[Rfam]
RNA sequence: UCAAAUUAUUUUUCGGUGUCUUAGCUUUAUGCAAAAUUCUUGCUGAUUCUGUCCUUAUUUCUUCAGCUGCUUCGAUUGGUUUGGCUGAAGAAAUAAGGACAGAAUCAGCAAGAAUUUUGCAUAAAGCUAAGACACCGAAAAAUAAUUUGA
Numbered sequence: 001u002c003a004a005a006u007u008a009u010u011u012u013u014c015g016g017u018g019u020c021u022u023a024g025c026u027u028u029a030u031g032c033a034a035a036a037u038u039c040u041u042g043c044u045g046a047u048u049c050u051g052u053c054c055u056u057a058u059u060u061c062u063u064c065a066g067c068u069g070c071u072u073c074g075a076u077u078g079g080u081u082u083g084g085c086u087g088a089a090g091a092a093a094u095a096a097g098g099a100c101a102g103a104a105u106c107a108g109c110a111a112g113a114a115u116u117u118u119g120c121a122u123a124a125a126g127c128u129a130a131g132a133c134a135c136c137g138a139a140a141a142a143u144a145a146u147u148u149g150a
Stems, first nucleotide, its partner, number of pairs: 001150005007144020028123042
RNA: mir-9/mir-79 microRNA precursor family